[Rfam]
RNA sequence: CCGGCGGGGCUUUGCUACUCCACAAAAAUAGCACCGAUCCCGCUAAUAUAAAGGAGGAAACCCCGUCUGACUCACGGUGCGGCAGUGUGGAGACCUGUCGUAAUGCCUCUGCUGUUUUGCUCGGCAGAGCGCGAGGGCAUAUAUUGAGGAUUCAGUAUGUCCGGAGUCGAAAAACUAUGGCA
Number, nucleotide and partner (000 for none) at each position: 001c000002c000003g000004g000005c000006g041007g040008g039009g038010c000011u036012u000013u033014g032015c031016u030017a029018c000019u000020c000021c000022a000023c000024a000025a000026a000027a000028a000029u017030a016031g015032c014033a013034c000035c000036g011037a000038u009039c008040c007041c006042g000043c000044u000045a000046a000047u000048a000049u000050a000051a000052a000053g000054g000055a000056g000057g000058a000059a000060a000061c000062c000063c077064c076065g075066u074067c000068u169069g168070a167071c166072u165073c164074a066075c065076g064077g063078u102079g101080c100081g099082g098083c097084a096085g095086u000087g094088u093089g000090g000091a000092g000093a088094c087095c085096u084097g083098u082099c081100g080101u079102a078103a000104u000105g132106c131107c129108u128109c127110u126111g125112c124113u000114g000115u000116u000117u000118u000119g000120c000121u000122c000123g000124g112125c111126a110127g109128a108129g107130c000131g106132c105133g000134a000135g162136g161137g160138c159139a158140u157141a156142u155143a000144u000145u154146g153147a152148g000149g000150a000151u000152u147153c146154a145155g142156u141157a140158u139159g138160u137161c136162c135163g000164g073165a072166g071167u070168c069169g068170a000171a000172a000173a000174a000175c000176u000177a000178u000179g000180g000181c000182a000
RNA: malK-I RNA